[Rfam]
RNA: c-di-GMP-I riboswitch aptamer
Organism: Gracilibacillus boraciitolerans
RNA sequence: UAACGAAUAUAGCAAACUUAUUGAAAGAUAAGGACGCAAAGCCUAUGGAUCUAAGGUCAAUGACUAGGAUAGCCAGGUUGCCGAA
Dot-bracket structure: ...........((...((((((....))))))...))..((((..((((((....(((...)))...)))..)))))))......
Numbered sequence: 001u002a003a004c005g006a007a008u009a010u011a012g013c014a015a016a017c018u019u020a021u022u023g024a025a026a027g028a029u030a031a032g033g034a035c036g037c038a039a040a041g042c043c044u045a046u047g048g049a050u051c052u053a054a055g056g057u058c059a060a061u062g063a064c065u066a067g068g069a070u071a072g073c074c075a076g077g078u079u080g081c082c083g084a085a
Stems, first nucleotide, its partner, number of pairs: 012037002017032006040079004046075003049070003056064003